RNA: Mason-Pfizer monkey virus packaging signal
Organism: Macaca nemestrina
RNA sequence: GGGCGCCUCAACGUGGAGCCUGGAAACGAGGGAUUACUGUGAGGAAGGAGGACUCGAAAAGAACGGUCGACCUUUCAAGGGUGAACUAAAACUCCUCCGAUCACGGCGGGGAACCUGCCGCGUUCAAGAAUCGAAGGUAAGUGACCGUCCGAAAUGGGACAAGAAUUAAGUCAACAUCAAAUCUAUGUAGGACAAUUAAAAGAGGCUUUAAAGAUACGAGAGUAAAGGUUAAAUGGUAAUGAUUUGUUUAAAAUUUUUGAUUUUGUUAAAAGAACUUGCCCUU
Numbered sequence: 001g002g003g004c005g006c007c008u009c010a011a012c013g014u015g016g017a018g019c020c021u022g023g024a025a026a027c028g029a030g031g032g033a034u035u036a037c038u039g040u041g042a043g044g045a046a047g048g049a050g051g052a053c054u055c056g057a058a059a060a061g062a063a064c065g066g067u068c069g070a071c072c073u074u075u076c077a078a079g080g081g082u083g084a085a086c087u088a089a090a091a092c093u094c095c096u097c098c099g100a101u102c103a104c105g106g107c108g109g110g111g112a113a114c115c116u117g118c119c120g121c122g123u124u125c126a127a128g129a130a131u132c133g134a135a136g137g138u139a140a141g142u143g144a145c146c147g148u149c150c151g152a153a154a155u156g157g158g159a160c161a162a163g164a165a166u167u168a169a170g171u172c173a174a175c176a177u178c179a180a181a182u183c184u185a186u187g188u189a190g191g192a193c194a195a196u197u198a199a200a201a202g203a204g205g206c207u208u209u210a211a212a213g214a215u216a217c218g219a220g221a222g223u224a225a226a227g228g229u230u231a232a233a234u235g236g237u238a239a240u241g242a243u244u245u246g247u248u249u250a251a252a253a254u255u256u257u258u259g260a261u262u263u264u265g266u267u268a269a270a271a272g273a274a275c276u277u278g279c280c281c282u283u
Stems, first nucleotide, its partner, number of pairs: 006032002009030001013027002038051001040049001091138003096134002101130001102128001106121004148158004167210003170206003217259005223252001226245006268283002272279001